[Rfam]
RNA: Bacterial large subunit ribosomal RNA, nucleotides 3031 to 3288
Organism: Thermoanaerobacter sp. X513
RNA sequence: GGAAACUUGAGAGGCACUGCCCCUAGUACGAGAGGACCGGGGUGGACGAACCGAUGGUGUACCAGUUGCACCGCCAGGUGCACAGCUGGGUAGCCAAGUUCGGAAGGGAUAAACGCUGAAAGCAUCUAAGCGUGAAGCCCGCCUCAAGAUUAGGUUUCCCAUCCGAGAGGGGUAAGACACCUCGAAGACUACGAGGUAGAUAGGCCGGGGGUGUAAGAGUGGAAACACUCUUAGCUGACCGGUACUAAUCAGUCGAGG
Numbered sequence: 001g002g003a004a005a006c007u008u009g010a011g012a013g014g015c016a017c018u019g020c021c022c023c024u025a026g027u028a029c030g031a032g033a034g035g036a037c038c039g040g041g042g043u044g045g046a047c048g049a050a051c052c053g054a055u056g057g058u059g060u061a062c063c064a065g066u067u068g069c070a071c072c073g074c075c076a077g078g079u080g081c082a083c084a085g086c087u088g089g090g091u092a093g094c095c096a097a098g099u100u101c102g103g104a105a106g107g108g109a110u111a112a113a114c115g116c117u118g119a120a121a122g123c124a125u126c127u128a129a130g131c132g133u134g135a136a137g138c139c140c141g142c143c144u145c146a147a148g149a150u151u152a153g154g155u156u157u158c159c160c161a162u163c164c165g166a167g168a169g170g171g172g173u174a175a176g177a178c179a180c181c182u183c184g185a186a187g188a189c190u191a192c193g194a195g196g197u198a199g200a201u202a203g204g205c206c207g208g209g210g211g212u213g214u215a216a217g218a219g220u221g222g223a224a225a226c227a228c229u230c231u232u233a234g235c236u237g238a239c240c241g242g243u244a245c246u247a248a249u250c251a252g253u254c255g256a257g258g
Base pairs, nucleotide, nucleotide: 001159002158003157004156005155006154007153008152011145012144013143014142017045018044019043020042021041022040023039047102048101049100050099051098055096056095057094062089063088064087065086066085067082068081069080070079071078072077106140107139108138113133114132115131116130117129162172163171164170173256176254177253178252180196181195182194183193184192201247202246203245204243205242206241207240208239210236211235217230218229219228220227221226
Dot-bracket structure: ((((((((..((((..(((((((...............))))))).(((((...(((....(((((((((((....))))))..)))))....))).)))))...(((....(((((...........)))))....))).))))......))))))))..(((.....)))(..(((.(((((.......)))))....((((((((.((.....(((((....)))))....))..))))).)))....))).)..